A member of the RNA family "mir-4900 microRNA precursor family" from Branchiostoma lanceolatum, 74 nucleotides long. Rfam 15.1 lists 18 matches to the family in 2 species.
RNA sequence: GCUAAGAGCUGUUCUUUGUCAGGGCGGCUCUGUGAUGUCUGACCAUAGCUGCCCGGCGAAGAAUAGUCCUUCCC
Numbered sequence: 001g002c003u004a005a006g007a008g009c010u011g012u013u014c015u016u017u018g019u020c021a022g023g024g025c026g027g028c029u030c031u032g033u034g035a036u037g038u039c040u041g042a043c044c045a046u047a048g049c050u051g052c053c054c055g056g057c058g059a060a061g062a063a064u065a066g067u068c069c070u071u072c073c074c
Stems, first nucleotide, its partner, number of pairs: 005070002008067002011064007019056002022053001025051005031045001032043002